[Rfam]
RNA sequence: AGAACAUUCGGACCGUCGGUCUACUGAGCAAUCCCAUCCGCUCGGUGGAAGAUCUUCCCUUUGUCGU
Numbered sequence: 001a002g003a004a005c006a007u008u009c010g011g012a013c014c015g016u017c018g019g020u021c022u023a024c025u026g027a028g029c030a031a032u033c034c035c036a037u038c039c040g041c042u043c044g045g046u047g048g049a050a051g052a053u054c055u056u057c058c059c060u061u062u063g064u065c066g067u
Base pairs, nucleotide, nucleotide: 004064005063006062010058011057012056015053016052017051020049021048022047023046024045025044026043027042028041029040
RNA: mir-2774 microRNA precursor family